[Rfam]
Nucleotides: 108
Stems, first nucleotide, its partner, number of pairs: 003106006013042001015041003021032003026079004043071004048067002051062002075100001080097006
Number, partner (000 for none) and nucleotide at each position: 001000a002000u003106c004105u005104u006103a007102u008101c009000a010000a011000g012000a013042g014000u015041g016040a017039c018000c019000g020000a021032g022031g023030g024000a025000u026079c027078a028077g029076g030023c031022c032021c033000g034000a035000u036000g037000a038000c039017g040016u041015c042013c043071a044070g045069c046068a047000a048067c049066c050000g051062c052061c053000a054000u055000u056000u057000a058000u059000u060000a061052g062051g063000a064000a065000a066049g067048g068046u069045g070044c071043u072000a073000c074000u075100u076029c077028c078027u079026g080097c081096a082095g083094a084093a085092u086000c087000g088000a089000u090000g091000u092085a093084u094083u095082c096081u097080g098000a099000a100075a101008g102007a103006u104005a105004a106003g107000c108000g

Shown here is a 108-nucleotide RNA sequence from Halalkalibacter nanhaiisediminis, a member of the family "SAM riboswitch aptamer (S box leader)". The SAM riboswitch is found upstream of a number of genes which code for proteins involved in methionine or cysteine biosynthesis in Gram-positive bacteria. Pairs were carried over by alignment from the consensus structure, which is taken from published work.